[Rfam]
RNA sequence: CCCCCGGCUGAAGCCGAGGGCUAUUUCCUUUCGCCUCUCCGAGGCU
Numbered sequence: 001c002c003c004c005c006g007g008c009u010g011a012a013g014c015c016g017a018g019g020g021c022u023a024u025u026u027c028c029u030u031u032c033g034c035c036u037c038u039c040c041g042a043g044g045c046u
Stems, first nucleotide, its partner, number of pairs: 001020003005016004033045005
Record summary
The record is a 46-nucleotide sequence from Prosthecobacter gellanilyticus, which matches "Acido-Lenti-1 RNA" in Rfam. By type it is a small RNA. Pairs were carried over by alignment from the consensus structure, which is taken from published work. Taxonomically the source falls in Prosthecobacter (Bacteria, Verrucomicrobiota, Verrucomicrobiia, Verrucomicrobiaceae).